RNA sequence: UAGUAGUGUGACAUGCCCGUUUGGGUUUUACUCUGAUGUUGAUUUAUUUAUUAUUAAAUUGAUUUUGGGUAACGGGGUGUUACAAUUGG
Numbered sequence: 001u002a003g004u005a006g007u008g009u010g011a012c013a014u015g016c017c018c019g020u021u022u023g024g025g026u027u028u029u030a031c032u033c034u035g036a037u038g039u040u041g042a043u044u045u046a047u048u049u050a051u052u053a054u055u056a057a058a059u060u061g062a063u064u065u066u067g068g069g070u071a072a073c074g075g076g077g078u079g080u081u082a083c084a085a086u087u088g089g
Base pairs, nucleotide, nucleotide: 005086007084008083009082010081011080012079013078014077016076017075018074019073020072021071